The family of this 373-nucleotide part of an RNA from an uncultured Atribacterota bacterium is "Bacterial large subunit ribosomal RNA". Rfam's curators put it in the seed alignment. Gene Ontology terms of the family: ribosome and structural constituent of ribosome.

RNA sequence: CGAGAGAACCCUCGUUAAGGAACUCGGCAAAAUGACUCCGUAACUUCGGGAGAAGGAGUGCCUCCUUAGGGUGAGUUGUUUUACAUAACAAGCCCGAAGAGGCUGCAAUAAAACGGCCCAAGCGACUGUUUACUAAAAACACAGGUCUCUGCAAAAUCGUAAGAUGAGGUAUAGGGACUGACGCCUGCCCGGUGCUGGAAGGUUAAGGAAGGGAGUUAGCUGACUCGCAAGGGUCAGGGAAGCUUCUGACCAAAGCCCCAGUAAACGGCGGCCGUAACUAUAACGGUCCUAAGGUAGCGAAAUUCCUUGUCGGGUAAGUUCCGACCCGCACGAAUGGCGUAACGAUUUGGGCACUGUCUCAACGAGGGACUCG
Numbered sequence: 001c002g003a004g005a006g007a008a009c010c011c012u013c014g015u016u017a018a019g020g021a022a023c024u025c026g027g028c029a030a031a032a033u034g035a036c037u038c039c040g041u042a043a044c045u046u047c048g049g050g051a052g053a054a055g056g057a058g059u060g061c062c063u064c065c066u067u068a069g070g071g072u073g074a075g076u077u078g079u080u081u082u083a084c085a086u087a088a089c090a091a092g093c094c095c096g097a098a099g100a101g102g103c104u105g106c107a108a109u110a111a112a113a114c115g116g117c118c119c120a121a122g123c124g125a126c127u128g129u130u131u132a133c134u135a136a137a138a139a140c141a142c143a144g145g146u147c148u149c150u151g152c153a154a155a156a157u158c159g160u161a162a163g164a165u166g167a168g169g170u171a172u173a174g175g176g177a178c179u180g181a182c183g184c185c186u187g188c189c190c191g192g193u194g195c196u197g198g199a200a201g202g203u204u205a206a207g208g209a210a211g212g213g214a215g216u217u218a219g220c221u222g223a224c225u226c227g228c229a230a231g232g233g234u235c236a237g238g239g240a241a242g243c244u245u246c247u248g249a250c251c252a253a254a255g256c257c258c259c260a261g262u263a264a265a266c267g268g269c270g271g272c273c274g275u276a277a278c279u280a281u282a283a284c285g286g287u288c289c290u291a292a293g294g295u296a297g298c299g300a301a302a303u304u305c306c307u308u309g310u311c312g313g314g315u316a317a318g319u320u321c322c323g324a325c326c327c328g329c330a331c332g333a334a335u336g337g338c339g340u341a342a343c344g345a346u347u348u349g350g351g352c353a354c355u356g357u358c359u360c361a362a363c364g365a366g367g368g369a370c371u372c373g
Stems, first nucleotide, its partner, number of pairs: 001373004009368008018359003035059005044049001060103005076091005104108001116352007123344002127141003144179008152169001156165003182339004187269003192266002194262005201257003207251002211247006220237007270288006289293001299326001309325006